About this RNA: The family of this 45-nucleotide sequence from Lentibacillus sp. JNUCC-1 is "PreQ1 (pre queuosine) riboswitch aptamer". The family has 43 seed sequences and 873 matches in Rfam 15.1. Taxonomically the source falls in Lentibacillus (Bacteria, Bacillota, Bacilli, Bacillaceae). A reference for the family is Reader et al. (2004), "Identification of four genes necessary for biosynthesis of the modified nucleoside queuosine", J Biol Chem.

RNA sequence: CAAACCGUGGUUCGAAACCAUCCCACGAUAAAAAACUAGGGAGUG
Dot-bracket structure: .....(((((.....[......))))).........]........